[Rfam]
RNA: Manganese Mn2+ riboswitch aptamer (yybP-ykoY)
Organism: Acidovorax delafieldii
RNA sequence: CUAGAAUAGCGCCCGUCUCUGGGGAGUAGCCCGCCCGGCCGCACACGGCGCCGGGGGCUUGCGUCAACACACUUGGGUUCCCACAACCUAUGGCGCACGCGGCUUGUGAUGAGCUGGGCGAGACCAUUGACUGCAUGCCGAUCCAUUGGCCGGAGUCGGCGUGCGGUCAAUGCGUUCACCACCCAUCCGGCC
Numbered sequence: 001c002u003a004g005a006a007u008a009g010c011g012c013c014c015g016u017c018u019c020u021g022g023g024g025a026g027u028a029g030c031c032c033g034c035c036c037g038g039c040c041g042c043a044c045a046c047g048g049c050g051c052c053g054g055g056g057g058c059u060u061g062c063g064u065c066a067a068c069a070c071a072c073u074u075g076g077g078u079u080c081c082c083a084c085a086a087c088c089u090a091u092g093g094c095g096c097a098c099g100c101g102g103c104u105u106g107u108g109a110u111g112a113g114c115u116g117g118g119c120g121a122g123a124c125c126a127u128u129g130a131c132u133g134c135a136u137g138c139c140g141a142u143c144c145a146u147u148g149g150c151c152g153g154a155g156u157c158g159g160c161g162u163g164c165g166g167u168c169a170a171u172g173c174g175u176u177c178a179c180c181a182c183c184c185a186u187c188c189g190g191c192c
Base pairs, nucleotide, nucleotide: 034055035054036053037052038051039050057100058099060097061096062095063094064093065092066091074090075089076088077087078086102192104190105189106188